A member of the RNA family "tRNA" from Kitasatospora kifunensis, 72 nucleotides long.
RNA sequence: GGGUGCGUAGCUCAGUGGUAGAGCGCCGCUCUUACAAAGCGGAUGUCGGCGGUUCGAAACCGUCCGCGCCCA
Numbered sequence: 001g002g003g004u005g006c007g008u009a010g011c012u013c014a015g016u017g018g019u020a021g022a023g024c025g026c027c028g029c030u031c032u033u034a035c036a037a038a039g040c041g042g043a044u045g046u047c048g049g050c051g052g053u054u055c056g057a058a059a060c061c062g063u064c065c066g067c068g069c070c071c072a
Base pairs, nucleotide, nucleotide: 001071002070003069004068005067006066007065010024011023012022013021026042027041028040029039030038048064049063050062051061052060
Background
Rfam links the family to the GO term triplet codon-amino acid adaptor activity. The base pairs follow the family's consensus structure, which is taken from published work. By type it is a transfer RNA.